[Rfam]
RNA sequence: AGCAGCCAUGUCAAAUUCGGUGCCUGCCCGCCAUGGCAGGCAUUGGUCCAGAAGGCUGCCAUAGAAACACUGUAGCACAUGGGCCCUGGUCCCCUCUGCUGGGCCUCAGGGAUAAAUUUGGCUACAGACACCA
Numbered sequence: 001a002g003c004a005g006c007c008a009u010g011u012c013a014a015a016u017u018c019g020g021u022g023c024c025u026g027c028c029c030g031c032c033a034u035g036g037c038a039g040g041c042a043u044u045g046g047u048c049c050a051g052a053a054g055g056c057u058g059c060c061a062u063a064g065a066a067a068c069a070c071u072g073u074a075g076c077a078c079a080u081g082g083g084c085c086c087u088g089g090u091c092c093c094c095u096c097u098g099c100u101g102g103g104c105c106u107c108a109g110g111g112a113u114a115a116a117u118u119u120g121g122c123u124a125c126a127g128a129c130a131c132c133a
Base pairs, nucleotide, nucleotide: 002059003058004057005056018045019044020043021042022041023040024039025038026037027036028035072125073124074123075122076121084111085110086109087108088107

Rfam assigns this 133-nucleotide RNA from Myotis brandtii to the family "Small nucleolar RNA SNORA5". Rfam classes the family as an H/ACA-box small nucleolar RNA. From the family's description: ACA5 is a member of the H/ACA class of snoRNA that guide the sites of modification of uridines to pseudouridines.